[Rfam]
RNA: FMN riboswitch aptamer (RFN element)
RNA sequence: GCAUGUUCUCGGGGCGGGGCGAAAUUCCCCACCGGCGGUAUGAAGAUUUAACUUUGAGCCCGCGAGCGCCUGAAUAGAGCCAUUCGCUCUUGUCUUCAGGGUCAGCAGAUCCGGUGAAAUGCCGGAGCCGACGGUUAUAGUCCGGAUGGAAGAGAGCAAAU
Number, nucleotide and partner (000 for none) at each position: 001g000002c000003a000004u158005g157006u156007u155008c154009u153010c152011g000012g000013g000014g000015c000016g000017g029018g028019g027020c000021g000022a000023a000024a000025u000026u000027c019028c018029c017030c000031a141032c140033c130034g129035g063036c062037g061038g060039u000040a000041u000042g000043a000044a000045g000046a000047u000048u000049u000050a000051a000052c000053u000054u000055u000056g000057a000058g128059c127060c038061c037062g036063c035064g000065a000066g106067c105068g000069c000070c000071u000072g000073a000074a000075u000076a000077g000078a000079g000080c000081c000082a000083u000084u000085c000086g000087c000088u000089c000090u000091u000092g000093u000094c000095u000096u000097c000098a000099g000100g000101g000102u000103c000104a000105g067106c066107a000108g000109a000110u126111c125112c124113g123114g122115u000116g000117a000118a000119a000120u000121g000122c114123c113124g112125g111126a110127g059128c058129c034130g033131a000132c144133g143134g142135u000136u000137a000138u000139a000140g032141u031142c134143c133144g132145g000146a000147u000148g000149g000150a000151a000152g010153a009154g008155a007156g006157c005158a004159a000160a000161u000